[Rfam]
RNA sequence: GGUGAUGAGCGGCAGCGUCAAGCCCUGGCUGGCUGUCCGGCAACCCUCCAUCCGCGGCGGGGUGCUCCAGGUGACCACCCGAUGGGACUGCGGCCCGCGGCUCCCAUAAGCGCGACGG
Numbered sequence: 001g002g003u004g005a006u007g008a009g010c011g012g013c014a015g016c017g018u019c020a021a022g023c024c025c026u027g028g029c030u031g032g033c034u035g036u037c038c039g040g041c042a043a044c045c046c047u048c049c050a051u052c053c054g055c056g057g058c059g060g061g062g063u064g065c066u067c068c069a070g071g072u073g074a075c076c077a078c079c080c081g082a083u084g085g086g087a088c089u090g091c092g093g094c095c096c097g098c099g100g101c102u103c104c105c106a107u108a109a110g111c112g113c114g115a116c117g118g
Stems, first nucleotide, its partner, number of pairs: 001079004009038001011037006021030002039066003044062003048057002082107006088100004
RNA: SAM (S-adenosyl methionine) riboswitch aptamer
Organism: Flexivirga oryzae